This 496-nucleotide part of an RNA from Rhodovulum sp. 12E13 belongs to the Rfam family "Bacterial large subunit ribosomal RNA". The organism belongs to Rhodovulum, within Bacteria.

[Rfam]
RNA sequence: CUCCGCGAAAGCUAUUUAGGUAGCGCGUCAUCCGAAUACCCCGGGGGGUAGAGCACUGGAUGGGUAAUGGGGCCCCACAGGCUUACUGAUCCUAACCAAACUCCGAAUACCCGGGAGUACUAGAUGGCAGACAGACGGCGAGUGCUAACGCCCGUCGUCAAGAGGGAAACAACCCUGACCUCCAGCUAAGGCCCCCAAUUCGUGGCUAAGUGGGAAAGCAGGUGAGACGGCCAAAACAACCAGGAGGUUGGCUUAGAAGCAGCCAUCCUUUAAAGAUAGCGUAACAGCUCACUGGUCUAAUCAAGCUGUCUUGCGGCGAAGAUGUAACGGGGCUCAAGCCACGAGCCGAAGCUGAGGAUGCCGAAAGGCAUGGUAGCGGAGCGCAGUGUGACAUAGCACCAUGCCUCUUCUGCGCCCUUCGGGGCGUAUCGGAGGCGAGGUGCUUUCUGUGAAGCCGGGGCGUGAGCCAACCGGUGGAGAGAUCACUGGCGAGAAU
Dot-bracket structure: (((((.....(((((....))))).(((((((...(...((((((.....(((...(((.((((....((((((.....))))).)....)))).)))..)).).....)))))).....).)))))).)...(((((((.((......)).)))))))....(((......)))...((((.(((...(((......(.((((((...........((..((((((((((.......(((((.(((..(((.........)))..)))(...)(...((......)).).)))))........)))))))))).))....................))))))))))...))))))).(.(((((....................................................))))).).....))))).(..((((.((((......((((((((....)))..)))))...)))).))))...).....